The record is a 94-nucleotide RNA from Neomicrococcus aestuarii, which matches "TPP riboswitch aptamer (THI element)" in Rfam. NCBI's taxonomy places the organism under Bacteria, Bacillati, Actinomycetota, Micrococcales, Neomicrococcus. Pairs were carried over by alignment from the consensus structure, which is taken from published work.
RNA sequence: UGCAGUGACACGGGGUGCCGCCUACGCGGCUGAGAUAACACCCGUUGAACCUGAUCCAGUUAAUACUGGCGAAGGGAUGUCCGGUUUUUACUUG
Numbered sequence: 001u002g003c004a005g006u007g008a009c010a011c012g013g014g015g016u017g018c019c020g021c022c023u024a025c026g027c028g029g030c031u032g033a034g035a036u037a038a039c040a041c042c043c044g045u046u047g048a049a050c051c052u053g054a055u056c057c058a059g060u061u062a063a064u065a066c067u068g069g070c071g072a073a074g075g076g077a078u079g080u081c082c083g084g085u086u087u088u089u090a091c092u093u094g
Base pairs, nucleotide, nucleotide: 007081008080009079010078011044012043013042014041016038017030018029019028020027021026050075051074052073056069057068058067059066